RNA sequence: CGUCCUUCAUGGCAACAUGAAGGAUGAUCGGGGAGGAGUCAGCAGAGGUCAUAGUAGUUCCUCCAUGCGGAAUGAAGGAC
Number, nucleotide and partner (000 for none) at each position: 001c026002g025003u000004c023005c022006u021007u020008c019009a018010u017011g016012g000013c000014a000015a000016c011017a010018u009019g008020a007021a006022g005023g004024a000025u002026g001027a000028u000029c000030g000031g000032g000033g000034a000035g000036g000037a000038g000039u046040c045041a000042g000043c000044a000045g040046a039047g000048g080049u079050c078051a000052u000053a000054g000055u000056a000057g073058u072059u071060c070061c069062u000063c000064c000065a000066u000067g000068c000069g061070g060071a059072a058073u057074g000075a000076a000077g000078g050079a049080c048
RNA: Group II catalytic intron D1-D4-1